[Rfam]
RNA sequence: GGAUGAAAUAGAGGCGCGAAAAACAAAAGUAUCUUUAGGGAGACGGGCAGCAAUGAACUAAAGAAAAAGGGUUUUUCGCCGAAGUUUUGAUAUUGCCCCAAUAUCAGGACUGGAUGAAUAUCGAAUAGGUAUUUGUUUGUCAUCAUUUUGAUGGAGAGCUAUCUCAUCU
Numbered sequence: 001g002g003a004u005g006a007a008a009u010a011g012a013g014g015c016g017c018g019a020a021a022a023a024c025a026a027a028a029g030u031a032u033c034u035u036u037a038g039g040g041a042g043a044c045g046g047g048c049a050g051c052a053a054u055g056a057a058c059u060a061a062a063g064a065a066a067a068a069g070g071g072u073u074u075u076u077c078g079c080c081g082a083a084g085u086u087u088u089g090a091u092a093u094u095g096c097c098c099c100a101a102u103a104u105c106a107g108g109a110c111u112g113g114a115u116g117a118a119u120a121u122c123g124a125a126u127a128g129g130u131a132u133u134u135g136u137u138u139g140u141c142a143u144c145a146u147u148u149u150g151a152u153g154g155a156g157a158g159c160u161a162u163c164u165c166a167u168c169u
Base pairs, nucleotide, nucleotide: 006164008162009161010160011159016079017078018077019076020075021074022073023072024071032064033063034062035061036060037059038058083111084110085109086108087107088106089105090104091103092102093101094100112138113137114136115135116134117133118132119131120130121129122128140154141153142152143151144150145149
Dot-bracket structure: .....(.((((....(((((((((.......(((((((...................)))))))......)))))))))...((((((((((((.....))))))))))))(((((((((((.....))))))))))).((((((...))))))....)))).).....
The record is a 169-nucleotide sequence from Propionispira arboris, which matches "Lysine riboswitch aptamer" in Rfam.